[Rfam]
RNA sequence: UUGAAGUUCCAUCUAUGGAUAAGACUUCUGUCUUAGUGUAUACAAGUUCUUGAAAGUAAAAGAGCAAUAACCAAUUUCUUGUUUUCUCGAGAGGAUUGGUAUUGCUCCUUU
Numbered sequence: 001u002u003g004a005a006g007u008u009c010c011a012u013c014u015a016u017g018g019a020u021a022a023g024a025c026u027u028c029u030g031u032c033u034u035a036g037u038g039u040a041u042a043c044a045a046g047u048u049c050u051u052g053a054a055a056g057u058a059a060a061a062g063a064g065c066a067a068u069a070a071c072c073a074a075u076u077u078c079u080u081g082u083u084u085u086c087u088c089g090a091g092a093g094g095a096u097u098g099g100u101a102u103u104g105c106u107c108c109u110u111u
Stems, first nucleotide, its partner, number of pairs: 008019004058111003062107008073096001076093005